Shown here is a 70-nucleotide RNA from Geotrypetes seraphini, a member of the family "Small nucleolar RNA SNORD82".
The match comes from Rfam's covariance-model search (47 bits).
Gene Ontology terms of the family: nucleolus and RNA processing.
It is annotated as a C/D-box small nucleolar RNA.
The literature on the family includes a 2002 paper in Mol Cell Biol by Galardi et al., "Purified box C/D snoRNPs are able to reproduce site-specific 2'-O-methylation of target RNA in vitro".
The organism belongs to Geotrypetes, within Eukaryota.
RNA sequence: GGCACAAAUGAUGCAUACUCUGGGACUUAAUACUGAUGACUUUUGAUGUCUGUUGUUUUAACUGAUGUGC
Numbered sequence: 001g002g003c004a005c006a007a008a009u010g011a012u013g014c015a016u017a018c019u020c021u022g023g024g025a026c027u028u029a030a031u032a033c034u035g036a037u038g039a040c041u042u043u044u045g046a047u048g049u050c051u052g053u054u055g056u057u058u059u060a061a062c063u064g065a066u067g068u069g070c
Stems, first nucleotide, its partner, number of pairs: 002070005